Shown here is a 68-nucleotide RNA from Sporolactobacillus inulinus, a member of the family "Bacillaceae-1 RNA". The organism belongs to Sporolactobacillus inulinus, within Bacteria. Pairs were carried over by alignment from the consensus structure, which is taken from published work. It scores 54 bits against the family's covariance model.

[Rfam]
RNA sequence: UGUAAGGGAACUUUCGCUAAAGGCGUGUACGUCCUGUAUGCAACGCGGAAGCCACCGCAUCCUGCGGA
Numbered sequence: 001u002g003u004a005a006g007g008g009a010a011c012u013u014u015c016g017c018u019a020a021a022g023g024c025g026u027g028u029a030c031g032u033c034c035u036g037u038a039u040g041c042a043a044c045g046c047g048g049a050a051g052c053c054a055c056c057g058c059a060u061c062c063u064g065c066g067g068a
Stems, first nucleotide, its partner, number of pairs: 011051007026040005055067004